[Rfam]
The family of this 52-nucleotide RNA from Georhizobium profundi is "sul1 RNA".
RNA sequence: AACGGACCCGUCCAACGGGUGGCUACUCCGAGCGCCUAUCCCUCGGCAAUCU
Numbered sequence: 001a002a003c004g005g006a007c008c009c010g011u012c013c014a015a016c017g018g019g020u021g022g023c024u025a026c027u028c029c030g031a032g033c034g035c036c037u038a039u040c041c042c043u044c045g046g047c048a049a050u051c052u
Stems, first nucleotide, its partner, number of pairs: 006020006028046005
It is annotated as a riboswitch.